[Rfam]
Nucleotides: 112
Stems, first nucleotide, its partner, number of pairs: 006107008020040007042092003045088002049086002055079002
Number, partner (000 for none) and nucleotide at each position: 001000a002000g003000g004000a005000u006107a007106a008105a009104u010103g011102c012101g013100g014000g015000a016000g017000a018000g019000a020040c021039u022038u023037a024036a025035u026034c027000c028000u029000a030000g031000u032000u033000a034026g035025a036024u037023u038022g039021a040020g041000c042092g043091c044090c045088g046087a047000a048000g049086g050085a051000a052000g053000a054000a055079g056078c057000u058000u059000g060000g061000u062000a063000a064000c065000a066000c067000g068000c069000c070000a071000u072000u073000a074000c075000c076000u077000a078056g079055u080000g081000a082000a083000u084000a085050u086049c087046u088045c089000a090044g091043g092042c093000a094000a095000a096000a097000g098000g099000a100013c101012c102011g103010u104009a105008u106007u107006u108000g109000g110000a111000c112000a